Rfam assigns this 357-nucleotide part of an RNA from Fidelibacterota bacterium MT.SAG.4 to the family "Bacterial small subunit ribosomal RNA".
On this family, see Yusupov et al., Science 2001: "Crystal structure of the ribosome at 5.5 A resolution".
Its family is annotated with ribosome and structural constituent of ribosome in the Gene Ontology.
Lineage of the source: Bacteria > Pseudomonadati > Fidelibacterota.
The base pairs follow the family's consensus structure, which is taken from published work.
The match comes from Rfam's covariance-model search (1576 bits).
[Rfam]
RNA sequence: GGCGUAAAGGGCGUGUAGGUGGAUUGAUAAGUCAGGUUUUAAAUAGUACGGCUCAACCGUAUCAAUGGGUCUGAUACUGUCAGUCUUGAGUUCGAGAGAGGGAAGCGGAAUUCCUGGUGUAGCGGUGAAAUGCCAUGAUAUCAGGAGGAACACCGGUGGCGAAGGCGGCUUCCUGGCUCGUAACUGACACUGAGGCGCGAAAGCGUGGGUAGCAAACAGGAUUAGAUACCCUGGUAGUCCACGCCGUAAACGAUGGAUACUAGCCGUCGGGAGAUUUUCGACCCUUUCGGUGGCGAAGCUAACGCAUUAAGUAUCCCGCCUGGGGAGUACGAUCGCAAGAUUGAAACUCAAAGGAAU
Numbered sequence: 001g002g003c004g005u006a007a008a009g010g011g012c013g014u015g016u017a018g019g020u021g022g023a024u025u026g027a028u029a030a031g032u033c034a035g036g037u038u039u040u041a042a043a044u045a046g047u048a049c050g051g052c053u054c055a056a057c058c059g060u061a062u063c064a065a066u067g068g069g070u071c072u073g074a075u076a077c078u079g080u081c082a083g084u085c086u087u088g089a090g091u092u093c094g095a096g097a098g099a100g101g102g103a104a105g106c107g108g109a110a111u112u113c114c115u116g117g118u119g120u121a122g123c124g125g126u127g128a129a130a131u132g133c134c135a136u137g138a139u140a141u142c143a144g145g146a147g148g149a150a151c152a153c154c155g156g157u158g159g160c161g162a163a164g165g166c167g168g169c170u171u172c173c174u175g176g177c178u179c180g181u182a183a184c185u186g187a188c189a190c191u192g193a194g195g196c197g198c199g200a201a202a203g204c205g206u207g208g209g210u211a212g213c214a215a216a217c218a219g220g221a222u223u224a225g226a227u228a229c230c231c232u233g234g235u236a237g238u239c240c241a242c243g244c245c246g247u248a249a250a251c252g253a254u255g256g257a258u259a260c261u262a263g264c265c266g267u268c269g270g271g272a273g274a275u276u277u278u279c280g281a282c283c284c285u286u287u288c289g290g291u292g293g294c295g296a297a298g299c300u301a302a303c304g305c306a307u308u309a310a311g312u313a314u315c316c317c318g319c320c321u322g323g324g325g326a327g328u329a330c331g332a333u334c335g336c337a338a339g340a341u342u343g344a345a346a347c348u349c350a351a352a353g354g355a356a357u
Stems, first nucleotide, its partner, number of pairs: 001320003009317001011198004016192001018191003022085007030078002032074008046062006089185003093180004100174007107151001111147008122133003159166002203244006212238002217233004255316006263294011298305002322349003331342004